[Rfam]
RNA: mir-932 microRNA precursor family
RNA sequence: CGAAGCUUUCAAUUCCGUAGUGCAUUGCAGUGUUUCAAAGUCCCAACUGCAAGCAUUGUGGGAUUGGCAGCAUUGAC
Numbered sequence: 001c002g003a004a005g006c007u008u009u010c011a012a013u014u015c016c017g018u019a020g021u022g023c024a025u026u027g028c029a030g031u032g033u034u035u036c037a038a039a040g041u042c043c044c045a046a047c048u049g050c051a052a053g054c055a056u057u058g059u060g061g062g063a064u065u066g067g068c069a070g071c072a073u074u075g076a077c
Base pairs, nucleotide, nucleotide: 006070007069009067010066011065014062015061016060017059018058021055022054023053025052026051027050028049029048